[Rfam]
RNA sequence: CUUGUGGUCGGGGCAACGUGGGGACGUGAAUCCCGCCAGGUCCGGAAGGAAGCAACGGUAGCGCACCUCCGCGUGUGUCCCGGCCGUUCUUAU
Number, nucleotide and partner (000 for none) at each position: 001c000002u000003u000004g087005u086006g085007g084008u083009c082010g081011g080012g079013g078014c075015a000016a074017c073018g072019u071020g070021g069022g066023g000024a000025c063026g062027u061028g000029a000030a000031u000032c000033c058034c057035g056036c000037c000038a000039g000040g000041u050042c049043c048044g000045g000046a000047a000048g043049g042050a041051a000052g000053c000054a000055a000056c035057g034058g033059u000060a000061g027062c026063g025064c000065a000066c022067c000068u000069c021070c020071g019072c018073g017074u016075g014076u000077g000078u013079c012080c011081c010082g009083g008084c007085c006086g005087u004088u000089c000090u000091u000092a000093u000
The family of this 93-nucleotide RNA from Melittangium boletus is "Bacterial small signal recognition particle RNA". The literature on the family includes a 2003 paper in Nucleic Acids Res by Rosenblad et al., "SRPDB: Signal Recognition Particle Database". The organism belongs to Melittangium boletus, within Bacteria. The family's RNA type in Rfam is non-coding RNA gene. Gene Ontology terms of the family: SRP-dependent cotranslational protein targeting to membrane, signal sequence recognition and signal recognition particle, plasma membrane targeting. Pairs were carried over by alignment from the consensus structure, which is taken from published work.